[Rfam]
Shown here is a 262-nucleotide sequence from Blautia sp. OF03-15BH, a member of the family "Bacterial large signal recognition particle RNA". The family's RNA type in Rfam is non-coding RNA gene. The family's consensus secondary structure is taken from published work.
RNA sequence: CCGCGCAGCCGGAGAGUUAGCGGUGCUCUGAACCUGCAAUCCGCUAUAGCAGGGGUGAUACCAAUCCGAGGACUUUUCGUUGUGGGGCUGCCUUUUAUAAGUGGCGUUGACGUCUGGGUCUUACGCAACAGGACUCUGUGAACCGUGUCAGGGUAGGAAUACAGCAGCACUAAGCAGAUUCUCCUGUGUGACGUGAGGCAGCCUGGGCUGAGCUGGCUGUAGGAGUAACGCCUGUGGCGUAUUUUCGAAGUGCGGUGCGCGG
Numbered sequence: 001c002c003g004c005g006c007a008g009c010c011g012g013a014g015a016g017u018u019a020g021c022g023g024u025g026c027u028c029u030g031a032a033c034c035u036g037c038a039a040u041c042c043g044c045u046a047u048a049g050c051a052g053g054g055g056u057g058a059u060a061c062c063a064a065u066c067c068g069a070g071g072a073c074u075u076u077u078c079g080u081u082g083u084g085g086g087g088c089u090g091c092c093u094u095u096u097a098u099a100a101g102u103g104g105c106g107u108u109g110a111c112g113u114c115u116g117g118g119u120c121u122u123a124c125g126c127a128a129c130a131g132g133a134c135u136c137u138g139u140g141a142a143c144c145g146u147g148u149c150a151g152g153g154u155a156g157g158a159a160u161a162c163a164g165c166a167g168c169a170c171u172a173a174g175c176a177g178a179u180u181c182u183c184c185u186g187u188g189u190g191a192c193g194u195g196a197g198g199c200a201g202c203c204u205g206g207g208c209u210g211a212g213c214u215g216g217c218u219g220u221a222g223g224a225g226u227a228a229c230g231c232c233u234g235u236g237g238c239g240u241a242u243u244u245u246c247g248a249a250g251u252g253c254g255g256u257g258c259g260c261g262g
Base pairs, nucleotide, nucleotide: 001262002261003260004259005258006257007256008056009055010054011029012028013027014026016024017023018022033053034052035051036050037049061255062254066250070246071245072244076241078239079238080237081236082235083234084233085232089227090226093224094223095222096221097220098219101217102216103214104213105212112208113207114206115205116204117203118202119201120197121196122195123194124193125192126188127187129186130185131184132183133182135178136177137176138175139174145170146169147168148167153162154161155160